[Rfam]
This 86-nucleotide RNA from Sinocyclocheilus grahami belongs to the Rfam family "mir-363 microRNA precursor family".
A reference for the family is Chiang et al. (2010), "Mammalian microRNAs: experimental evaluation of novel and previously annotated genes", Genes Dev.
Clan: mir-19 clan.
Its family is annotated with RISC complex and miRNA-mediated post-transcriptional gene silencing in the Gene Ontology.
Taxonomically the source falls in Sinocyclocheilus (Eukaryota, Bilateria, Actinopteri, Cyprinidae).
A search with the family's covariance model found it, with a score of 68 bits.
Pairs were carried over by alignment from the consensus structure, which was predicted with RNAalifold.
The family has 22 seed sequences and 620 matches in Rfam 15.1.

RNA sequence: GCUGUUUUCAGGUGGAUGACUCUGCAAUUUUAAUAGUGGCAAAAAUCUUCCAACGAAAAUUGCACAGUAUCCAUAUGUAAUCCGCU
Numbered sequence: 001g002c003u004g005u006u007u008u009c010a011g012g013u014g015g016a017u018g019a020c021u022c023u024g025c026a027a028u029u030u031u032a033a034u035a036g037u038g039g040c041a042a043a044a045a046u047c048u049u050c051c052a053a054c055g056a057a058a059a060u061u062g063c064a065c066a067g068u069a070u071c072c073a074u075a076u077g078u079a080a081u082c083c084g085c086u
Base pairs, nucleotide, nucleotide: 009077010076012074013073014072015071016070017069019068020067023064024063025062026061027060028059029058030057031056